[Rfam]
RNA sequence: UUCGGCAAUCGGUUGAGUAUCCUAACGGGCUUUUCAACUGAAGCCUACAAACUGAAGGAGACGUGUUAGUGGCCCGUAUCGCUGGCAUUAACGUUCCUGAC
Numbered sequence: 001u002u003c004g005g006c007a008a009u010c011g012g013u014u015g016a017g018u019a020u021c022c023u024a025a026c027g028g029g030c031u032u033u034u035c036a037a038c039u040g041a042a043g044c045c046u047a048c049a050a051a052c053u054g055a056a057g058g059a060g061a062c063g064u065g066u067u068a069g070u071g072g073c074c075c076g077u078a079u080c081g082c083u084g085g086c087a088u089u090a091a092c093g094u095u096c097c098u099g100a101c
Stems, first nucleotide, its partner, number of pairs: 004045003009041005021085002026076004034100003
RNA: Alpha operon ribosome binding site
Organism: Idiomarina loihiensis